[Rfam]
RNA sequence: GGAGUCGGCCAGGCAAUCGCUGCCGGUGUUUCCACCGGCGGAGGAAAGUCCGGGCUCCACAGGGCAGGGUGCCAGGUAACACCUGGGAGGCGUGAGCCUACGGAAAGUGCCGCAGAAAACAGACCGCCGAUGGCCCGUCAGGGCACAGGCAAGGGUGAAAAGGUGCGGUAAGAGCGCACCGCGCGGGUGGCAACACGCCGCGGCACGGUAAACCCCACCCGGAGCAAGACCAAAUAGGGGAGCCAUGAUGUGGCCCGCAUCGCUCCCGGGUAGGUCGCUUGAGGCGCGCGGUGACGCGCGUCCCAGAGGAAUGGUUGCCCAUCGACAGAACCCGGCUUACCGGCUGACUCCUUCU
Numbered sequence: 001g002g003a004g005u006c007g008g009c010c011a012g013g014c015a016a017u018c019g020c021u022g023c024c025g026g027u028g029u030u031u032c033c034a035c036c037g038g039c040g041g042a043g044g045a046a047a048g049u050c051c052g053g054g055c056u057c058c059a060c061a062g063g064g065c066a067g068g069g070u071g072c073c074a075g076g077u078a079a080c081a082c083c084u085g086g087g088a089g090g091c092g093u094g095a096g097c098c099u100a101c102g103g104a105a106a107g108u109g110c111c112g113c114a115g116a117a118a119a120c121a122g123a124c125c126g127c128c129g130a131u132g133g134c135c136c137g138u139c140a141g142g143g144c145a146c147a148g149g150c151a152a153g154g155g156u157g158a159a160a161a162g163g164u165g166c167g168g169u170a171a172g173a174g175c176g177c178a179c180c181g182c183g184c185g186g187g188u189g190g191c192a193a194c195a196c197g198c199c200g201c202g203g204c205a206c207g208g209u210a211a212a213c214c215c216c217a218c219c220c221g222g223a224g225c226a227a228g229a230c231c232a233a234a235u236a237g238g239g240g241a242g243c244c245a246u247g248a249u250g251u252g253g254c255c256c257g258c259a260u261c262g263c264u265c266c267c268g269g270g271u272a273g274g275u276c277g278c279u280u281g282a283g284g285c286g287c288g289c290g291g292u293g294a295c296g297c298g299c300g301u302c303c304c305a306g307a308g309g310a311a312u313g314g315u316u317g318c319c320c321a322u323c324g325a326c327a328g329a330a331c332c333c334g335g336c337u338u339a340c341c342g343g344c345u346g347a348c349u350c351c352u353u354c355u
Base pairs, nucleotide, nucleotide: 001351002350003349004348005347006346007345008344009343010342012319013318014317015316016315017314018313020041021040022039023038024037025036026035027034028033046338047337048336050335051334052333053332054331055224056223057222058221062256063255064254065253067220068219069218070217071216072086073085074084075083076082087101088099089098090097091096102215103214107213108212109209110208111207124154125153126150127149128148131147132146133144134143135142136141162180163179164178165177166176167175181204182202183201184200185199186198187196188195189194228276229275230274231273238267239266240265241264242263243262247261248260249259250258251257283302284301285300286299287298288297289296290295
Bacterial RNase P class A: a 355-nucleotide RNA from Aquisalimonas sp. 2447. From the family's description: Ribonuclease P (RNase P) is a ubiquitous endoribonuclease, found in archaea, bacteria and eukarya as well as chloroplasts and mitochondria. NCBI's taxonomy places the organism under Bacteria, Pseudomonadati, Pseudomonadota, Chromatiales, Aquisalimonas.